[Rfam]
RNA: Small nucleolar RNA SNORD83
Organism: Esox lucius
RNA sequence: GCCACAUGAUGAAAAUGAAUAGAUUUGCACUAGCACUAUGUGCAAAGAUGACUUACUAUCUAUCACCCUUGUCUGAUGGCU
Numbered sequence: 001g002c003c004a005c006a007u008g009a010u011g012a013a014a015a016u017g018a019a020u021a022g023a024u025u026u027g028c029a030c031u032a033g034c035a036c037u038a039u040g041u042g043c044a045a046a047g048a049u050g051a052c053u054u055a056c057u058a059u060c061u062a063u064c065a066c067c068c069u070u071g072u073c074u075g076a077u078g079g080c081u
Base pairs, nucleotide, nucleotide: 001080002079003078004077033043034042035041036040